[Rfam]
RNA sequence: GGUGGCCCGGGACCGCUCCGACAGUCGAUCAUCGCAUGCUGUCGCAGGCGCUUCCCCGCC
Numbered sequence: 001g002g003u004g005g006c007c008c009g010g011g012a013c014c015g016c017u018c019c020g021a022c023a024g025u026c027g028a029u030c031a032u033c034g035c036a037u038g039c040u041g042u043c044g045c046a047g048g049c050g051c052u053u054c055c056c057c058g059c060c
Base pairs, nucleotide, nucleotide: 001060002059003058004057005056015049016047017046019044020043021042022041023040024039025038026034027033
RNA: gabT RNA